A member of the RNA family "FMN riboswitch aptamer (RFN element)" from Bacillus aerolatus, 131 nucleotides long. Taxonomically the source falls in Bacillus (Bacteria, Bacillati, Bacilli, Caryophanales).
[Rfam]
Nucleotides: 131
Stems, first nucleotide, its partner, number of pairs: 003129008017029003031111002033101002035065004060099002068077003081097005103114003
Number, partner (000 for none) and nucleotide at each position: 001000a002000u003129u004128c005127a006126u007125c008124u009123u010122c011000g012000g013000g014000g015000c016000a017029g018028g019027g020000u021000g022000a023000a024000a025000u026000u027019c028018c029017c030000g031111a032110c033101c034100g035065g036064c037063g038062g039000u040000a041000u042000g043000g044000a045000a046000g047000c048000a049000c050000g051000a052000g053000c054000u055000u056000c057000c058000g059000a060099g061098c062038c063037c064036g065035c066000g067000a068077g069076c070075c071000g072000c073000a074000a075070g076069g077068c078000u079000g080000a081097u082096u083095u084094g085093g086000u087000g088000a089000g090000a091000u092000g093085c094084c095083a096082a097081a098061g099060c100034c101033g102000a103114c104113a105112g106000u107000a108000u109000a110032g111031u112105c113104u114103g115000g116000a117000u118000g119000g120000g121000a122010g123009a124008a125007g126006g127005u128004g129003a130000a131000g
A search with the family's covariance model found it, with a score of 123 bits.
The RFN element is a highly conserved domain that is found frequently in the 5'-untranslated regions of prokaryotic mRNAs that encode for flavin mononucleotide (FMN) biosynthesis and transport proteins.